[Rfam]
RNA sequence: GAGAGGGAGAGAGCGGCUGACGGUGGUCUUUUAUGAUCGCUGAGGAAAGUCCCCCCACCUUCCGGACACGCAGCCGUAUGCAAGUACGGGUGGCGAGAGUCACGGCAAUGGCACAGAAACGACACGGCCUGUUCCCAGUUAUGAUGCGGCCGAGCCCCCCGGGGCGAGAAACGCGGUUGUUGCCGCGUGAGUAACCCGUUGAGCGCUUUAACGGAACAGGAUACGAUGAAACGGCGAAUCCCUGCGGGUGCAAGCCAGAACAGGGCAAUGGAUCGUCCGGUAUCCGCCCGGGUAUGGUGCAGAGCUGAAUGCCGCACGAACAGAAGGAGGCUUACUCCUCCCACUC
Numbered sequence: 001g002a003g004a005g006g007g008a009g010a011g012a013g014c015g016g017c018u019g020a021c022g023g024u025g026g027u028c029u030u031u032u033a034u035g036a037u038c039g040c041u042g043a044g045g046a047a048a049g050u051c052c053c054c055c056c057a058c059c060u061u062c063c064g065g066a067c068a069c070g071c072a073g074c075c076g077u078a079u080g081c082a083a084g085u086a087c088g089g090g091u092g093g094c095g096a097g098a099g100u101c102a103c104g105g106c107a108a109u110g111g112c113a114c115a116g117a118a119a120c121g122a123c124a125c126g127g128c129c130u131g132u133u134c135c136c137a138g139u140u141a142u143g144a145u146g147c148g149g150c151c152g153a154g155c156c157c158c159c160c161g162g163g164g165c166g167a168g169a170a171a172c173g174c175g176g177u178u179g180u181u182g183c184c185g186c187g188u189g190a191g192u193a194a195c196c197c198g199u200u201g202a203g204c205g206c207u208u209u210a211a212c213g214g215a216a217c218a219g220g221a222u223a224c225g226a227u228g229a230a231a232c233g234g235c236g237a238a239u240c241c242c243u244g245c246g247g248g249u250g251c252a253a254g255c256c257a258g259a260a261c262a263g264g265g266c267a268a269u270g271g272a273u274c275g276u277c278c279g280g281u282a283u284c285c286g287c288c289c290g291g292g293u294a295u296g297g298u299g300c301a302g303a304g305c306u307g308a309a310u311g312c313c314g315c316a317c318g319a320a321c322a323g324a325a326g327g328a329g330g331c332u333u334a335c336u337c338c339u340c341c342c343a344c345u346c
Stems, first nucleotide, its partner, number of pairs: 001346003005342005010336002013315005021042008047333003051330002054327002056250004062280005069246005074089005090103005104241002109237001111235002125225002128220008146174002254298004263289004
Archaeal RNase P: a 346-nucleotide sequence from Methanoregula boonei. Its Rfam clan is "RNaseP clan". Ribonuclease P (RNase P) is a ubiquitous endoribonuclease, found in archaea, bacteria and eukarya as well as chloroplasts and mitochondria. Its best characterised activity is the generation of mature 5'-ends of tRNAs by cleaving the 5'-leader elements of precursor-tRNAs. Cellular RNase Ps are ribonucleoproteins. Its family is annotated with tRNA processing, ribonuclease P activity and multimeric ribonuclease P complex in the Gene Ontology. Rfam classes the family as a ribozyme.